This 99-nucleotide sequence from Clupea harengus belongs to the Rfam family "Small nucleolar RNA SNORD16".
[Rfam]
RNA sequence: UGCAAUGAUGGUGUAAUUUGCGUCUGACACUGUGCUCAGCGACGGUUGCCGCCGUCAUAUAUGCUGUCGCAGAUGUUUGUUGAAACUUAAAUCUGAGCA
Numbered sequence: 001u002g003c004a005a006u007g008a009u010g011g012u013g014u015a016a017u018u019u020g021c022g023u024c025u026g027a028c029a030c031u032g033u034g035c036u037c038a039g040c041g042a043c044g045g046u047u048g049c050c051g052c053c054g055u056c057a058u059a060u061a062u063g064c065u066g067u068c069g070c071a072g073a074u075g076u077u078u079g080u081u082g083a084a085a086c087u088u089a090a091a092u093c094u095g096a097g098c099a
Base pairs, nucleotide, nucleotide: 001099002098003097021082022081024079030072031071032070033069034068039064040063041056042055043054044053045052
The match comes from Rfam's covariance-model search (78 bits). A reference for the family is Fragapane et al. (1993), "A novel small nucleolar RNA (U16) is encoded inside a ribosomal protein intron and originates by processing of the pre-mRNA", EMBO J.